SR1 sRNA: a 225-nucleotide sequence from Priestia filamentosa. It is annotated as a small RNA. NCBI's taxonomy places the organism under Bacteria, Bacillati, Bacillota, Bacilli, Priestia. Its family is annotated with translation repressor activity, mRNA regulatory element binding and negative regulation of translational initiation in the Gene Ontology. The base pairs follow the family's consensus structure, which is taken from published work.

[Rfam]
RNA sequence: AAGCAAGAAGAUAAAACGUUUUCAAAAAUAACCUCAAAAGGCAAAAAGGAGCGCUAUAAGAUGGGAACAAUUAUUUGUCAAACAUGCAGUGACACAAUUGAGUAUUUUGAUGAUGAGAAAGUAUCAACGCUUUACGGAACGUGCCAAUAUUGUGAGGAAAAAGAUAAAUAGAAUAAUAGAAUCAUAAAAUAAAAAAGCUCUGCAUUUGCAGAGCUUUUUUAUUUU
Numbered sequence: 001a002a003g004c005a006a007g008a009a010g011a012u013a014a015a016a017c018g019u020u021u022u023c024a025a026a027a028a029u030a031a032c033c034u035c036a037a038a039a040g041g042c043a044a045a046a047a048g049g050a051g052c053g054c055u056a057u058a059a060g061a062u063g064g065g066a067a068c069a070a071u072u073a074u075u076u077g078u079c080a081a082a083c084a085u086g087c088a089g090u091g092a093c094a095c096a097a098u099u100g101a102g103u104a105u106u107u108u109g110a111u112g113a114u115g116a117g118a119a120a121g122u123a124u125c126a127a128c129g130c131u132u133u134a135c136g137g138a139a140c141g142u143g144c145c146a147a148u149a150u151u152g153u154g155a156g157g158a159a160a161a162a163g164a165u166a167a168a169u170a171g172a173a174u175a176a177u178a179g180a181a182u183c184a185u186a187a188a189a190u191a192a193a194a195a196a197g198c199u200c201u202g203c204a205u206u207u208g209c210a211g212a213g214c215u216u217u218u219u220u221a222u223u224u225u
Stems, first nucleotide, its partner, number of pairs: 016122002019120004025114001034110006062097001064095001068091002074089002148166004188223013